SAM-I/IV (S-adenosyl methionine) riboswitch aptamer: a 110-nucleotide RNA sequence from Allosphingosinicella humi. Taxonomically the source falls in Allosphingosinicella (Bacteria, Pseudomonadati, Pseudomonadota, Sphingomonadales).
[Rfam]
RNA sequence: CACAUGCAUCAAGAGUGGGCCGGGUUCGGUCCACGCCAACCUGCCUUCCCGGGCAAGGUGGCGGUCCCAUGAGGGGCGAUGCGGCCGGACCGGCAACGAAGCGGGUAACG
Numbered sequence: 001c002a003c004a005u006g007c008a009u010c011a012a013g014a015g016u017g018g019g020c021c022g023g024g025u026u027c028g029g030u031c032c033a034c035g036c037c038a039a040c041c042u043g044c045c046u047u048c049c050c051g052g053g054c055a056a057g058g059u060g061g062c063g064g065u066c067c068c069a070u071g072a073g074g075g076g077c078g079a080u081g082c083g084g085c086c087g088g089a090c091c092g093g094c095a096a097c098g099a100a101g102c103g104g105g106u107a108a109c110g
Stems, first nucleotide, its partner, number of pairs: 006082005015034008035062003040058003043054003048105004084094004
A search with the family's covariance model found it, with a score of 62 bits.